RNA sequence: UAAGUUUUAAAAAGACAUACUCAUAUAAUAGCAAGAAUAAGGCUUGCGAGUUUCUACCAAACUACCGUAAAUAGUUUGACUAUGAGUGAAUAAAGAUGAACC
Numbered sequence: 001u002a003a004g005u006u007u008u009a010a011a012a013a014g015a016c017a018u019a020c021u022c023a024u025a026u027a028a029u030a031g032c033a034a035g036a037a038u039a040a041g042g043c044u045u046g047c048g049a050g051u052u053u054c055u056a057c058c059a060a061a062c063u064a065c066c067g068u069a070a071a072u073a074g075u076u077u078g079a080c081u082a083u084g085a086g087u088g089a090a091u092a093a094a095g096a097u098g099a100a101c102c
Base pairs, nucleotide, nucleotide: 018088019087020086021085022084023083024082025081029049031047032046033045034044035043058078059077060076061075062074063073064072
RNA: Purine riboswitch aptamer
Organism: Alkalihalobacillus alcalophilus